[Rfam]
RNA: MIR5298 microRNA precursor family
RNA sequence: UUAGGUUUUCUUCAUUUUCUUUUGGAAUUUUUCUCGGAUUUUUGUUGUUAAAGGUUGAUGAAGAUAAUAUGAAGAUGAAGAAGAGUAGAAG
Dot-bracket structure: .....((((((((((((((.................(((((((......)))))))..............)))))))))))))).......